RNA sequence: UGAAAAUGCCCUCCGAUGCGGGGCGAUCCGGGCCUAGACAAUCCAGAUCAUCCCGCACAGAAGGCACUUUCCCACUCACCGCGCCGAUCCAGCACCCAGUCAGUCCACGGAUCGAG
Number, nucleotide and partner (000 for none) at each position: 001u000002g071003a070004a069005a068006a000007u066008g065009c064010c063011c000012u061013c060014c000015g000016a000017u057018g000019c055020g054021g053022g052023g051024c000025g049026a048027u047028c000029c000030g000031g043032g042033c000034c000035u000036a000037g000038a000039c000040a000041a000042u032043c031044c000045a000046g000047a027048u026049c025050a000051u023052c022053c021054c020055g019056c000057a017058c000059a000060g013061a012062a000063g010064g009065c008066a007067c000068u005069u004070u003071c002072c000073c000074a000075c000076u000077c000078a000079c000080c000081g000082c000083g000084c000085c000086g000087a000088u000089c000090c000091a000092g000093c000094a000095c000096c000097c114098a000099g112100u111101c110102a000103g108104u000105c000106c000107a000108c103109g000110g101111a100112u099113c000114g097115a000116g000

Background:
The family of this 116-nucleotide RNA sequence from Microlunatus parietis is "Actinobacteria sRNA Ms_IGR-7". It is annotated as a small RNA.